Shown here is a 62-nucleotide RNA sequence from Fopius arisanus, a member of the family "mir-2 microRNA precursor family". The match comes from Rfam's covariance-model search (56 bits). Pairs were carried over by alignment from the consensus structure, which was predicted with PFOLD.
RNA sequence: CGGUACAUCAAAUUGGUUGUGGAAUGUUGUCAGUCAUAUCACAGCCACUUUGAUGAGGUCGG
Number, nucleotide and partner (000 for none) at each position: 001c000002g000003g000004u000005a000006c055007a054008u053009c052010a051011a050012a049013u000014u047015g046016g045017u044018u043019g042020u041021g040022g039023a000024a000025u038026g037027u036028u000029g000030u000031c000032a000033g000034u000035c000036a027037u026038a025039u022040c021041a020042c019043a018044g017045c016046c015047a014048c000049u012050u011051u010052g009053a008054u007055g006056a000057g000058g000059u000060c000061g000062g000